Rfam assigns this 300-nucleotide sequence from Paxillus involutus to the family "U2 spliceosomal RNA".

[Rfam]
RNA sequence: UUACCACUCUGGCCUUUUGGCUUAGAUCAAGUGUAGUAUGACAGAACUAGAUGUGCUUGAACCCAUAAGUUGGACGUUGAUCGAAUGUUUGGCGGAGACUUGCCUUAAAUGGAAAGGGACAAUCGGUCAUGUGACUGUUAUCUUAUCUUAUCUUAAUAGUUUAACCGCUAUCAUGAGGGCACCGCCCUCAUUCUUUGGUUAUCAAAUUUUUGACGCCCUUGAUCCCUGCGAGCUCUGCUUGCAACUCCAGGGACGUGAUGACCUUGCCACUGCAGUACCGGCUCGUGUCAUCGGGGGAUC
Numbered sequence: 001u002u003a004c005c006a007c008u009c010u011g012g013c014c015u016u017u018u019g020g021c022u023u024a025g026a027u028c029a030a031g032u033g034u035a036g037u038a039u040g041a042c043a044g045a046a047c048u049a050g051a052u053g054u055g056c057u058u059g060a061a062c063c064c065a066u067a068a069g070u071u072g073g074a075c076g077u078u079g080a081u082c083g084a085a086u087g088u089u090u091g092g093c094g095g096a097g098a099c100u101u102g103c104c105u106u107a108a109a110u111g112g113a114a115a116g117g118g119a120c121a122a123u124c125g126g127u128c129a130u131g132u133g134a135c136u137g138u139u140a141u142c143u144u145a146u147c148u149u150a151u152c153u154u155a156a157u158a159g160u161u162u163a164a165c166c167g168c169u170a171u172c173a174u175g176a177g178g179g180c181a182c183c184g185c186c187c188u189c190a191u192u193c194u195u196u197g198g199u200u201a202u203c204a205a206a207u208u209u210u211u212g213a214c215g216c217c218c219u220u221g222a223u224c225c226c227u228g229c230g231a232g233c234u235c236u237g238c239u240u241g242c243a244a245c246u247c248c249a250g251g252g253a254c255g256u257g258a259u260g261a262c263c264u265u266g267c268c269a270c271u272g273c274a275g276u277a278c279c280g281g282c283u284c285g286u287g288u289c290a291u292c293g294g295g296g297g298a299u300c
Base pairs, nucleotide, nucleotide: 008026009025010024011022012021013020014019039173040172041171043169044168174190175189176188177187178186179185180184223253224252225251226250227249228248236243237242256293257292258291259290260289261288263285266282267281268280
For this family Rfam cites "A conserved pseudouridine modification in eukaryotic U2 snRNA induces a change in branch-site architecture" (Newby and Greenbaum, RNA, 2001). Rfam 15.1 lists 71,512 matches to the family in 2,642 species. A search with the family's covariance model found it, with a score of 57 bits. Rfam's curators write: U2 is a small nuclear RNA (snRNA) component of the spliceosome (involved in pre-mRNA splicing). Complementary binding between U2 snRNA (in an area lying towards the 5' end but 3' to hairpin I) and the branchpoint sequence (BPS) of the intron results the bulging out of an unpaired adenosine, on the BPS, which initiates a nucleophilic attack at the intronic 5' splice site, thus starting the first of two transesterification reactions that mediate splicing.